Shown here is a 181-nucleotide sequence from Asterophora parasitica, a member of the family "small nucleolar RNA snR35". It scores 49 bits against the family's covariance model. The base pairs follow the family's consensus structure, which was predicted with RNAalifold. The family has 4 seed sequences and 75 matches in Rfam 15.1.
[Rfam]
RNA sequence: UUCGUGCGGCGGCACGGCCAUGUCAUUUCCCCAUGUUGCUCAUGACCGCUCUUUCCAUCUCGGUCUGUCCAAGCGGUCGUUCGAGUGUCAGGCCGUGUCCUGAGAAAUCUGGACGUCUUAGUACCCAUUUAUCGUCUCUUCCAAUUCAGAAAGUGGCGAUGGGUCGGUGGUUCCGUACAUU
Numbered sequence: 001u002u003c004g005u006g007c008g009g010c011g012g013c014a015c016g017g018c019c020a021u022g023u024c025a026u027u028u029c030c031c032c033a034u035g036u037u038g039c040u041c042a043u044g045a046c047c048g049c050u051c052u053u054u055c056c057a058u059c060u061c062g063g064u065c066u067g068u069c070c071a072a073g074c075g076g077u078c079g080u081u082c083g084a085g086u087g088u089c090a091g092g093c094c095g096u097g098u099c100c101u102g103a104g105a106a107a108u109c110u111g112g113a114c115g116u117c118u119u120a121g122u123a124c125c126c127a128u129u130u131a132u133c134g135u136c137u138c139u140u141c142c143a144a145u146u147c148a149g150a151a152a153g154u155g156g157c158g159a160u161g162g163g164u165c166g167g168u169g170g171u172u173c174c175g176u177a178c179a180u181u
Stems, first nucleotide, its partner, number of pairs: 022099001024097003038086004046076004110175001111173004129162008139151001